[Rfam]
RNA sequence: CGGUGAGGUAGAGGCGCAGACGUCAUGAGUCAUUCACCUGAGCACGGCAAGCUACGAAGGUGAAUAAAAGGGAUGGUCUGCCGAAGGAGCAGAAUGUGAUGUCGUACAUUCUUCUUCUGGUGUGUAUUUGAAGAAAGUCCACACUGUCAUGCAUGCUUUUUUGGGUGCAUGGGGCGCUACUGAUCGA
Numbered sequence: 001c002g003g004u005g006a007g008g009u010a011g012a013g014g015c016g017c018a019g020a021c022g023u024c025a026u027g028a029g030u031c032a033u034u035c036a037c038c039u040g041a042g043c044a045c046g047g048c049a050a051g052c053u054a055c056g057a058a059g060g061u062g063a064a065u066a067a068a069a070g071g072g073a074u075g076g077u078c079u080g081c082c083g084a085a086g087g088a089g090c091a092g093a094a095u096g097u098g099a100u101g102u103c104g105u106a107c108a109u110u111c112u113u114c115u116u117c118u119g120g121u122g123u124g125u126a127u128u129u130g131a132a133g134a135a136a137g138u139c140c141a142c143a144c145u146g147u148c149a150u151g152c153a154u155g156c157u158u159u160u161u162u163g164g165g166u167g168c169a170u171g172g173g174g175c176g177c178u179a180c181u182g183a184u185c186g187a
Base pairs, nucleotide, nucleotide: 007181008180009179010178011177016081017080018079019078020077021076022074023073024072032065033064034063035062036061037060038059039058085118086117087116088115089114091112092111093110094109095108096107097106098105119145120144121143122142123141124140126138127137128136129135147172148171149170150169151168152167153166

The record is a 187-nucleotide sequence from Halobacillus salinus, which matches "Lysine riboswitch aptamer" in Rfam. A search with the family's covariance model found it, with a score of 108 bits. Rfam's curators write: Riboswitches are metabolite binding domains within certain messenger RNAs that serve as precision sensors for their corresponding targets. Taxonomically the source falls in Halobacillus (Bacteria, Bacilli, Caryophanales, Bacillaceae).